[Rfam]
RNA sequence: UGAUCACGGCCGCCGAAUCCGCGAAUCUCGCGGAACCGGGGAACCAACCGUUCUUGGGGUGAAUCGGCGCCUCCGCGCGCCGUAGGGCACUUCCCAGCCCGAACCCGUCAGCUAACCCGGUAGGCGGAAUGAGAAGCGAA
Numbered sequence: 001u002g003a004u005c006a007c008g009g010c011c012g013c014c015g016a017a018u019c020c021g022c023g024a025a026u027c028u029c030g031c032g033g034a035a036c037c038g039g040g041g042a043a044c045c046a047a048c049c050g051u052u053c054u055u056g057g058g059g060u061g062a063a064u065c066g067g068c069g070c071c072u073c074c075g076c077g078c079g080c081c082g083u084a085g086g087g088c089a090c091u092u093c094c095c096a097g098c099c100c101g102a103a104c105c106c107g108u109c110a111g112c113u114a115a116c117c118c119g120g121u122a123g124g125c126g127g128a129a130u131g132a133g134a135a136g137c138g139a140a
Stems, first nucleotide, its partner, number of pairs: 011126004018034005035121006045056002057106003065082004085100004
Dot-bracket structure: ..........((((...(((((.......)))))((((((....((........))(((.....((((..........))))..((((........))))...))).........)))))).))))..............
Shown here is a 140-nucleotide sequence from Streptosporangium roseum, a member of the family "c-di-AMP riboswitch aptamer (ydaO/yuaA leader)".
Gene Ontology terms of the family: regulation of gene expression and cyclic-di-AMP binding.
Taxonomically the source falls in Streptosporangium roseum (Bacteria, Bacillati, Actinomycetota, Streptosporangiales).
It scores 96 bits against the family's covariance model.